[Rfam]
RNA sequence: ACGAGGUGAUGAAGAAAUUCAUUGGUCUGUCAAUCCACUGAUAUAUAUAUUGUGAUGCCAUUAAUGAAUCCCGACAGGUUCUGAUCGU
Number, nucleotide and partner (000 for none) at each position: 001a088002c087003g086004a085005g000006g000007u000008g000009a000010u000011g000012a000013a000014g000015a000016a000017a000018u000019u000020c000021a000022u000023u000024g000025g000026u000027c000028u000029g000030u000031c000032a000033a000034u000035c000036c000037a000038c000039u000040g000041a000042u000043a000044u000045a000046u000047a000048u000049a000050u000051u000052g000053u000054g000055a000056u000057g000058c000059c000060a000061u000062u000063a000064a000065u000066g000067a000068a000069u000070c000071c000072c000073g000074a000075c000076a000077g000078g000079u000080u000081c000082u000083g000084a000085u004086c003087g002088u001
Small nucleolar RNA snoR14: an 88-nucleotide RNA sequence from Nyssa sinensis. Pairs were carried over by alignment from the consensus structure. The organism belongs to Nyssa, within Eukaryota. The family is grouped with related families in Rfam's "SNORD110 clan". On this family, see Brown et al., RNA 2001: "Multiple snoRNA gene clusters from Arabidopsis". Its family is annotated with nucleolus and RNA processing in the Gene Ontology. A search with the family's covariance model found it, with a score of 87 bits.